[Rfam]
RNA sequence: GAAACGAUGUUGCAACAGUAAUCCAACUUAGUACGAGAGGAACCGUUGGAUCAGAUAAUUGGUAAAUACGGUUAGCUGAAAAGCUAGUGCCGUGAAGCUACCAUCUGUAGGAUUAUGACUGAACGCCUCUAAGUCAGAAUCCUUGCUGGAAAGCAACGUCCCAACAAUAAUAAACGAAAAAGAAUAGGCUUCGGCUUAAGUUCAGAUAAGGUGUCGGACCAGCAUCGGAAGAGAUGUCAUGUCAGGCGUCGGAUCAUAAUUUCGAAUUAUUAUUGUCUCAGAUCUUUUGUAGACGACUUAAUCUAGGAAAGGGUGCCGUAAGCAUGAGAGUAGGAUUUCCCUACGAUCUGCUGAAGCUUAUCCCUCUUCCUACGAUCUGC
Numbered sequence: 001g002a003a004a005c006g007a008u009g010u011u012g013c014a015a016c017a018g019u020a021a022u023c024c025a026a027c028u029u030a031g032u033a034c035g036a037g038a039g040g041a042a043c044c045g046u047u048g049g050a051u052c053a054g055a056u057a058a059u060u061g062g063u064a065a066a067u068a069c070g071g072u073u074a075g076c077u078g079a080a081a082a083g084c085u086a087g088u089g090c091c092g093u094g095a096a097g098c099u100a101c102c103a104u105c106u107g108u109a110g111g112a113u114u115a116u117g118a119c120u121g122a123a124c125g126c127c128u129c130u131a132a133g134u135c136a137g138a139a140u141c142c143u144u145g146c147u148g149g150a151a152a153g154c155a156a157c158g159u160c161c162c163a164a165c166a167a168u169a170a171u172a173a174a175c176g177a178a179a180a181a182g183a184a185u186a187g188g189c190u191u192c193g194g195c196u197u198a199a200g201u202u203c204a205g206a207u208a209a210g211g212u213g214u215c216g217g218a219c220c221a222g223c224a225u226c227g228g229a230a231g232a233g234a235u236g237u238c239a240u241g242u243c244a245g246g247c248g249u250c251g252g253a254u255c256a257u258a259a260u261u262u263c264g265a266a267u268u269a270u271u272a273u274u275g276u277c278u279c280a281g282a283u284c285u286u287u288u289g290u291a292g293a294c295g296a297c298u299u300a301a302u303c304u305a306g307g308a309a310a311g312g313g314u315g316c317c318g319u320a321a322g323c324a325u326g327a328g329a330g331u332a333g334g335a336u337u338u339c340c341c342u343a344c345g346a347u348c349u350g351c352u353g354a355a356g357c358u359u360a361u362c363c364c365u366c367u368u369c370c371u372a373c374g375a376u377c378u379g380c
Base pairs, nucleotide, nucleotide: 006160007159008158009157010156011155012154013153016148017147018146019145021051022050023049024048025047026046027045052107053106054105055104056103060100061099062098067094068093069092070091071090072087073086074085075084076083077082109143110142111141116136117135118134119133120132164276165275166274167273168272169271170270280378281377282376283375284374285301286300289297305371306370307369308368309367311364312363313362315357316356322351323350324349327347330344331343332342333341334340